[Rfam]
RNA sequence: UGCAAGUAUUUUAUGAUUAAGAAGCAACUGUCUCUUGUAUAGAUUAUUUACUAAUCU
Numbered sequence: 001u002g003c004a005a006g007u008a009u010u011u012u013a014u015g016a017u018u019a020a021g022a023a024g025c026a027a028c029u030g031u032c033u034c035u036u037g038u039a040u041a042g043a044u045u046a047u048u049u050a051c052u053a054a055u056c057u
Stems, first nucleotide, its partner, number of pairs: 018037005024031002
Rfam assigns this 57-nucleotide RNA sequence from Ricinus communis to the family "Plastid-rps18 3UTR RNA".
Pairs were carried over by alignment from the consensus structure, which was predicted with LocARNA.
Rfam's curators write: Plastid rps18 is a non-coding RNA (ncRNA) present in plastids. It was identified as a short stem-loop motif in the 3 prime untranslate region (3UTR) of rps18 gene.
A reference for the family is Richter et al. (2023), "Retrograde signaling in plants: A critical review focusing on the GUN pathway and beyond", Plant Commun.